[Rfam]
RNA sequence: UAUAGUUGAGCAUAACAACCAAUAAAGAUAUGCACAGUUCACACCGCAGACCGUAAUGCGGAUAUAUAAAUGACGGAUAUAAAGAAUUGUUGGAGGACAA
Numbered sequence: 001u002a003u004a005g006u007u008g009a010g011c012a013u014a015a016c017a018a019c020c021a022a023u024a025a026a027g028a029u030a031u032g033c034a035c036a037g038u039u040c041a042c043a044c045c046g047c048a049g050a051c052c053g054u055a056a057u058g059c060g061g062a063u064a065u066a067u068a069a070a071u072g073a074c075g076g077a078u079a080u081a082a083a084g085a086a087u088u089g090u091u092g093g094a095g096g097a098c099a100a
Stems, first nucleotide, its partner, number of pairs: 005019004010033005035089005044061005